[Rfam]
RNA sequence: CAUUUUAGAGGGCAAAUUUUACGAAAGUAAAAGACGCAAAGCCACGGGCCUAACACAUUCAUUGUCAUGGUAGCCGAGUUGCAUAA
Dot-bracket structure: ...........((...((((((....))))))...))..(((..((((((....(((.....)))...)))..))).)))......
RNA: c-di-GMP-I riboswitch aptamer
Organism: Niallia endozanthoxylica